[Rfam]
RNA sequence: CAAGCUGAAGUCAAAUUAGAAUACUUGCUGAACUUAAGCAUAUUAAUAAGCAAAGGAAAAGAAAUCAACUGAGAUUGCCUUAGUAAUGGCGAAUGAACCGGCAAAAGCUCAUUGCUGAAGCGUGUUAAAUUCACUUUUGACAUGCAUUGUAGCAUUUGGGGUAACUAUUGUAUGGUGCCUGUUCGUGUGAGUUCCUUUGAUCAGGGCUUUUAACCAUAGAAGGUGCUAGUCCUAUAAUCACGAAUAGUUUUGUGCUAUACAUUGUAUACCUUUCGAGUAGCGUAGUUUGAGAUUGCUACGCCAACGUGGGACGUAAACUUGUUCCAAAGCUAAAUAUUAUAACGAGACCGAUAGCGAACAAGUACCGUGAGGGAAAGUUGAAAAGCACUCUGAAGAGAGAGUUAAAUAGUACGUAAAACCGUACAGAAGAAAA
Numbered sequence: 001c002a003a004g005c006u007g008a009a010g011u012c013a014a015a016u017u018a019g020a021a022u023a024c025u026u027g028c029u030g031a032a033c034u035u036a037a038g039c040a041u042a043u044u045a046a047u048a049a050g051c052a053a054a055g056g057a058a059a060a061g062a063a064a065u066c067a068a069c070u071g072a073g074a075u076u077g078c079c080u081u082a083g084u085a086a087u088g089g090c091g092a093a094u095g096a097a098c099c100g101g102c103a104a105a106a107g108c109u110c111a112u113u114g115c116u117g118a119a120g121c122g123u124g125u126u127a128a129a130u131u132c133a134c135u136u137u138u139g140a141c142a143u144g145c146a147u148u149g150u151a152g153c154a155u156u157u158g159g160g161g162u163a164a165c166u167a168u169u170g171u172a173u174g175g176u177g178c179c180u181g182u183u184c185g186u187g188u189g190a191g192u193u194c195c196u197u198u199g200a201u202c203a204g205g206g207c208u209u210u211u212a213a214c215c216a217u218a219g220a221a222g223g224u225g226c227u228a229g230u231c232c233u234a235u236a237a238u239c240a241c242g243a244a245u246a247g248u249u250u251u252g253u254g255c256u257a258u259a260c261a262u263u264g265u266a267u268a269c270c271u272u273u274c275g276a277g278u279a280g281c282g283u284a285g286u287u288u289g290a291g292a293u294u295g296c297u298a299c300g301c302c303a304a305c306g307u308g309g310g311a312c313g314u315a316a317a318c319u320u321g322u323u324c325c326a327a328a329g330c331u332a333a334a335u336a337u338u339a340u341a342a343c344g345a346g347a348c349c350g351a352u353a354g355c356g357a358a359c360a361a362g363u364a365c366c367g368u369g370a371g372g373g374a375a376a377g378u379u380g381a382a383a384a385g386c387a388c389u390c391u392g393a394a395g396a397g398a399g400a401g402u403u404a405a406a407u408a409g410u411a412c413g414u415a416a417a418a419c420c421g422u423a424c425a426g427a428a429g430a431a432a433a
Stems, first nucleotide, its partner, number of pairs: 024055001025053005035042002065072002076103004086094002106331004113154005119148001120145009159271002161267003165264001167262002170255006181245007191207001193206004215219001222232002280301007308325005365372002388399004
RNA: Eukaryotic large subunit ribosomal RNA, nucleotides 1 to 433